[Rfam]
RNA sequence: AGCUAAUAGGCCUGAGAAUUUAGCUCAAACCGAAGCAAAGUGUACGGUGAGCAAAGUUUCAGGUUUAUUGGCUC
Numbered sequence: 001a002g003c004u005a006a007u008a009g010g011c012c013u014g015a016g017a018a019u020u021u022a023g024c025u026c027a028a029a030c031c032g033a034a035g036c037a038a039a040g041u042g043u044a045c046g047g048u049g050a051g052c053a054a055a056g057u058u059u060c061a062g063g064u065u066u067a068u069u070g071g072c073u074c
Stems, first nucleotide, its partner, number of pairs: 002072006009065007017057001019055003024051004030047003
RNA: mir-87 microRNA precursor family
Organism: Ramazzottius varieornatus